RNA: Small nucleolar RNA U3
RNA sequence: GAGACUGUACUUCUCAGGAUCAUUUCUGUAGUACGGUUUCCCGGUGGGGGUUCCACCUUGCUCGCCAAAGCACCCGCGAUGAAGAGCAAAAGCGUUGUCCCCUGAGCGUGAAGCUCGCCGGGGGCGUCGCCAGUUUUGGUGAUCGCCCGGCGUUGAGGACCGUCGGCUGGUCCCUUUGGGGAUCGGCCGCGGGGGCGACGCUCUCUGAGCGGG
Number, nucleotide and partner (000 for none) at each position: 001g040002a039003g038004a037005c036006u035007g034008u033009a032010c031011u030012u000013c000014u000015c028016a027017g026018g025019a024020u000021c000022a000023u000024u019025u018026c017027u016028g015029u000030a011031g010032u009033a008034c007035g006036g005037u004038u003039u002040c001041c000042c000043g000044g000045u000046g000047g000048g063049g062050g061051u060052u000053c000054c000055a000056c000057c000058u000059u000060g051061c050062u049063c048064g000065c000066c000067a000068a000069a000070g000071c000072a000073c213074c212075c211076g210077c209078g000079a000080u000081g000082a000083a000084g000085a000086g000087c000088a000089a000090a000091a000092g201093c200094g199095u198096u197097g196098u195099c194100c193101c192102c191103u000104g000105a000106g163107c162108g161109u000110g000111a000112a000113g000114c000115u000116c152117g151118c150119c149120g000121g000122g000123g147124g146125c145126g144127u142128c141129g140130c139131c138132a000133g000134u000135u000136u000137u000138g131139g130140u129141g128142a127143u000144c126145g125146c124147c123148c000149g119150g118151c117152g116153u000154u000155g000156a000157g000158g000159a000160c000161c108162g107163u106164c000165g000166g187167c186168u185169g184170g183171u182172c181173c180174c179175u000176u000177u000178g000179g174180g173181g172182a171183u170184c169185g168186g167187c166188c000189g000190c000191g102192g101193g100194g099195g098196c097197g096198a095199c094200g093201c092202u000203c000204u000205c000206u000207g000208a000209g077210c076211g075212g074213g073